[Rfam]
RNA sequence: GCCCAAGGUAGAGGCGCAAUAACUAUCAGUAAGCUCUAAGAGAGUGAUGUCUAAGAUGAGAGCUGAAAGGAGUUAUUGCCGAAGUAUUGGAAGUUAUCGCCUUUCAAUGCUGGGGUUAUAUUCGAAUAGAUAUAACACUGCCAUAGUCUAUGUUGUUGUUAAACUAUGGAGCGCUACUGUAGGG
Numbered sequence: 001g002c003c004c005a006a007g008g009u010a011g012a013g014g015c016g017c018a019a020u021a022a023c024u025a026u027c028a029g030u031a032a033g034c035u036c037u038a039a040g041a042g043a044g045u046g047a048u049g050u051c052u053a054a055g056a057u058g059a060g061a062g063c064u065g066a067a068a069g070g071a072g073u074u075a076u077u078g079c080c081g082a083a084g085u086a087u088u089g090g091a092a093g094u095u096a097u098c099g100c101c102u103u104u105c106a107a108u109g110c111u112g113g114g115g116u117u118a119u120a121u122u123c124g125a126a127u128a129g130a131u132a133u134a135a136c137a138c139u140g141c142c143a144u145a146g147u148c149u150a151u152g153u154u155g156u157u158g159u160u161a162a163a164c165u166a167u168g169g170a171g172c173g174c175u176a177c178u179g180u181a182g183g184g
Stems, first nucleotide, its partner, number of pairs: 007178005016079009032064006039057001083111011112139002115136008141169007
Overview:
Rfam assigns this 184-nucleotide RNA from Vibrio nigripulchritudo to the family "Lysine riboswitch aptamer".